[Rfam]
Rfam assigns this 99-nucleotide RNA from Dehalobacter sp. 12DCB1 to the family "NiCo (Nickel/Cobalt) riboswitch aptamer". The organism belongs to Dehalobacter, within Bacteria. Rfam links the family to the GO terms cobalt ion binding and metal ion homeostasis. On this family, see Furukawa et al., Mol Cell 2015: "Bacterial riboswitches cooperatively bind Ni(2+) or Co(2+) ions and control expression of heavy metal transporters".

RNA sequence: AUAUUGCGCAUCGAUCAGGCCGAUACACGUGAAAUUGAUUUAGGUGUAUAAGGCUGGGCCGGUAUACUGGCAGCAGGAGACAAAUCCUGUGGGACUAUA
Numbered sequence: 001a002u003a004u005u006g007c008g009c010a011u012c013g014a015u016c017a018g019g020c021c022g023a024u025a026c027a028c029g030u031g032a033a034a035u036u037g038a039u040u041u042a043g044g045u046g047u048a049u050a051a052g053g054c055u056g057g058g059c060c061g062g063u064a065u066a067c068u069g070g071c072a073g074c075a076g077g078a079g080a081c082a083a084a085u086c087c088u089g090u091g092g093g094a095c096u097a098u099a
Stems, first nucleotide, its partner, number of pairs: 010098002013095001016093001018055004023049006058071005073090006